[Rfam]
RNA: c-di-AMP riboswitch aptamer (ydaO/yuaA leader)
Nucleotides: 161
Base pairs, nucleotide, nucleotide: 005146006145007144009143013032014031015030033141034140035139036138037137038136043081082126083125084124090103091102092101093100106120107119108118109117
Number, partner (000 for none) and nucleotide at each position: 001000a002000a003000u004000u005146c006145g007144c008000a009143c010000c011000c012000a013032u014031c015030c016000a017000c018000u019000c020000a021000c022000g023000u024000g025000u026000g027000g028000c029000a030015g031014g032013a033141g034140c035139g036138g037137g038136g039000g040000a041000a042000c043081c044000a045000g046000g047000u048000a049000a050000g051000c052000c053000g054000c055000c056000g057000g058000c059000c060000c061000g062000g063000a064000g065000u066000g067000a068000u069000c070000c071000g072000g073000a074000c075000c076000g077000g078000c079000u080000c081043g082126g083125g084124g085000u086000g087000a088000a089000g090103u091102c092101g093100c094000c095000g096000a097000c098000c099000g100093g101092c102091g103090g104000c105000c106120g107119g108118g109117c110000a111000u112000c113000u114000c115000c116000a117109g118108c119107c120106c121000g122000a123000a124084c125083c126082c127000g128000a129000c130000a131000g132000c133000u134000c135000a136038c137037c138036u139035c140034g141033c142000a143009g144007g145006c146005g147000c148000c149000g150000g151000a152000g153000a154000g155000g156000a157000a158000c159000u160000u161000c